[Rfam]
RNA sequence: UUACCGGCGGUCUCUAAUUCGCUUGGUGCAGGUCGGGAACUGAUUGCCUGCCUCUCCUUCUUUUUUAAUCCAAUUGGAUCCAAUUUAAGCCAGCUGAUUGGAGGAUGCGAGAAUUGGAUCCCGCCUUGCAUCAACUGAAUCGGAGACCGCGGUGAGG
Numbered sequence: 001u002u003a004c005c006g007g008c009g010g011u012c013u014c015u016a017a018u019u020c021g022c023u024u025g026g027u028g029c030a031g032g033u034c035g036g037g038a039a040c041u042g043a044u045u046g047c048c049u050g051c052c053u054c055u056c057c058u059u060c061u062u063u064u065u066u067a068a069u070c071c072a073a074u075u076g077g078a079u080c081c082a083a084u085u086u087a088a089g090c091c092a093g094c095u096g097a098u099u100g101g102a103g104g105a106u107g108c109g110a111g112a113a114u115u116g117g118a119u120c121c122c123g124c125c126u127u128g129c130a131u132c133a134a135c136u137g138a139a140u141c142g143g144a145g146a147c148c149g150c151g152g153u154g155a156g157g
Base pairs, nucleotide, nucleotide: 013144014143017140018139019138020137023134024133025132026131027130028129029128030127031126032125034123035122036121037120038119040117041116042115043114044113045112
RNA: MIR168 microRNA precursor family